[Rfam]
Infectious bronchitis virus D-RNA: a 42-nucleotide RNA from Diceros bicornis. Taxonomically the source falls in Diceros bicornis (Eukaryota, Deuterostomia, Eutheria, Laurasiatheria). About the family: This family represents a cis-regulatory element known as defective RNA or D-RNA. This region is thought to be essential for viral replication and efficient packaging. By type it is a cis-regulatory element. Its family is annotated with viral genome replication and viral genome packaging in the Gene Ontology.
RNA sequence: GAUAGAUAGAUAGGUAGAUAGACUAUCUACCUAUCUAUCUCC
Numbered sequence: 001g002a003u004a005g006a007u008a009g010a011u012a013g014g015u016a017g018a019u020a021g022a023c024u025a026u027c028u029a030c031c032u033a034u035c036u037a038u039c040u041c042c
Stems, first nucleotide, its partner, number of pairs: 001042001005039013